[Rfam]
RNA sequence: ACAAGGUCGGAAGGUUCGCUGUCCGGGGUCACUUCGGUGGCUUCGGGGGAAAGUCCCCAGUCCUGUGGCGGAGAGCGCCAGUCCCAUUUCAUGGGGCGAACGCUGCGUUGAGCCGAGCAAAAUCAGCGGUGACAGUCAUCAGACUGUAGCUGACGGUGAGGUAGCGUACUCGACACGAGCGAAAGUUAUGCGAACAGCCCGUAAAUGGUACGGGUGAACUCAAUGGGGCUUACUCUUCGACCCUG
Numbered sequence: 001a002c003a004a005g006g007u008c009g010g011a012a013g014g015u016u017c018g019c020u021g022u023c024c025g026g027g028g029u030c031a032c033u034u035c036g037g038u039g040g041c042u043u044c045g046g047g048g049g050a051a052a053g054u055c056c057c058c059a060g061u062c063c064u065g066u067g068g069c070g071g072a073g074a075g076c077g078c079c080a081g082u083c084c085c086a087u088u089u090c091a092u093g094g095g096g097c098g099a100a101c102g103c104u105g106c107g108u109u110g111a112g113c114c115g116a117g118c119a120a121a122a123u124c125a126g127c128g129g130u131g132a133c134a135g136u137c138a139u140c141a142g143a144c145u146g147u148a149g150c151u152g153a154c155g156g157u158g159a160g161g162u163a164g165c166g167u168a169c170u171c172g173a174c175a176c177g178a179g180c181g182a183a184a185g186u187u188a189u190g191c192g193a194a195c196a197g198c199c200c201g202u203a204a205a206u207g208g209u210a211c212g213g214g215u216g217a218a219c220u221c222a223a224u225g226g227g228g229c230u231u232a233c234u235c236u237u238c239g240a241c242c243c244u245g
Base pairs, nucleotide, nucleotide: 002245003244005242006241007240008239009238010237011236014195015194016193017192018191019190022047023046024045025044026043027042028041029040030039031038032037051231052230053229055228056227057226058225067079068078069077070076081097082096083095084094085093086092087091100167101166102165103164104163105162106161108159112157113156114155115154124152125151126150127149134145135144136143137142197215198214199213200212201211202210
RNA: RNase MRP
Organism: Oikopleura dioica